[Rfam]
RNA sequence: GGAGCCAUAGGGAGGGACCCCAAUCUAGCCUUAGGAAAAGAAACCUUCCACAGGAGUCUUGGAGAUUGAUGACCAUCCUGAUAACUUA
Numbered sequence: 001g002g003a004g005c006c007a008u009a010g011g012g013a014g015g016g017a018c019c020c021c022a023a024u025c026u027a028g029c030c031u032u033a034g035g036a037a038a039a040g041a042a043a044c045c046u047u048c049c050a051c052a053g054g055a056g057u058c059u060u061g062g063a064g065a066u067u068g069a070u071g072a073c074c075a076u077c078c079u080g081a082u083a084a085c086u087u088a
Stems, first nucleotide, its partner, number of pairs: 002087003007082002010079004015074002018071001021068005029062002038060004044054003
A member of the RNA family "mir-9014 microRNA precursor family" from Equus caballus, 88 nucleotides long.
Gene Ontology terms of the family: RISC complex and miRNA-mediated post-transcriptional gene silencing.
The family has 2 seed sequences and 581 matches in Rfam 15.1.